A member of the RNA family "SAM-VI (S-adenosyl methionine) riboswitch aptamer" from Bifidobacterium callitrichos, 80 nucleotides long.
RNA sequence: CGUAUCAUUGUGCCCCGCACUUCCGGGCCCGAAGCGGCCGCGUAUGCGAGGCGAUAAGUCCGAAAGAGGGAUGAUAUGAC
Numbered sequence: 001c002g003u004a005u006c007a008u009u010g011u012g013c014c015c016c017g018c019a020c021u022u023c024c025g026g027g028c029c030c031g032a033a034g035c036g037g038c039c040g041c042g043u044a045u046g047c048g049a050g051g052c053g054a055u056a057a058g059u060c061c062g063a064a065a066g067a068g069g070g071a072u073g074a075u076a077u078g079a080c
Base pairs, nucleotide, nucleotide: 001078002077003076004075005074006073007072008071009070011053012052013051014050016048017047018046019045060069061068
Lineage of the source: Bacteria > Actinomycetota > Bifidobacteriaceae > Bifidobacterium > Bifidobacterium callitrichos.
The sequence is in the family's curated seed alignment.